[Rfam]
TD-1 RNA: a 110-nucleotide RNA sequence from Treponema vincentii. The family is grouped with related families in Rfam's "TD (Treponema denticola) motifs". Rfam classes the family as a cis-regulatory element.
RNA sequence: CUUAACCAUCAAGUUUUCUUUCGAAAACUUGCGUAUUGAUGUGUGCGCUUUUCGCGCACGAAUGCAACAGUUUCCAAAAUUCAUAUUUUGUUCAACUGUUGCAUUUUAAG
Numbered sequence: 001c002u003u004a005a006c007c008a009u010c011a012a013g014u015u016u017u018c019u020u021u022c023g024a025a026a027a028c029u030u031g032c033g034u035a036u037u038g039a040u041g042u043g044u045g046c047g048c049u050u051u052u053c054g055c056g057c058a059c060g061a062a063u064g065c066a067a068c069a070g071u072u073u074c075c076a077a078a079a080u081u082c083a084u085a086u087u088u089u090g091u092u093c094a095a096c097u098g099u100u101g102c103a104u105u106u107u108a109a110g
Stems, first nucleotide, its partner, number of pairs: 011030008043059006062104011075090006